[Rfam]
RNA sequence: AUGAUAAAAGGCGAUGGAGUUCGCCAUCAACCGUCUUUGUGACUAAUGACUCCUACCAGUGG
Numbered sequence: 001a002u003g004a005u006a007a008a009a010g011g012c013g014a015u016g017g018a019g020u021u022c023g024c025c026a027u028c029a030a031c032c033g034u035c036u037u038u039g040u041g042a043c044u045a046a047u048g049a050c051u052c053c054u055a056c057c058a059g060u061g062g
Stems, first nucleotide, its partner, number of pairs: 010025004016053006033043003
Description: The record is a 62-nucleotide RNA from Neobacillus vireti, which matches "Fluoride riboswitch aptamer (crcB RNA motif)" in Rfam. A search with the family's covariance model found it, with a score of 60 bits. The base pairs follow the family's consensus structure, which is taken from published work.